[Rfam]
RNA sequence: UGUCCCUGGCCUGGGUAGAGUGGCGCCGGGUUGGUGGUGCCUGUCUCAUAUCAGCCAGGGACAGAGUAACUCCUUGUUUAUCCCAGCUUGGCUUUUGGUUUGUGCCCAUGUCUGGUUCAUGCCCUGGAAACAUGG
Numbered sequence: 001u002g003u004c005c006c007u008g009g010c011c012u013g014g015g016u017a018g019a020g021u022g023g024c025g026c027c028g029g030g031u032u033g034g035u036g037g038u039g040c041c042u043g044u045c046u047c048a049u050a051u052c053a054g055c056c057a058g059g060g061a062c063a064g065a066g067u068a069a070c071u072c073c074u075u076g077u078u079u080a081u082c083c084c085a086g087c088u089u090g091g092c093u094u095u096u097g098g099u100u101u102g103u104g105c106c107c108a109u110g111u112c113u114g115g116u117u118c119a120u121g122c123c124c125u126g127g128a129a130a131c132a133u134g135g
Stems, first nucleotide, its partner, number of pairs: 001063008011054004018047003022041006075130001077128004090123003096119003100115003104111002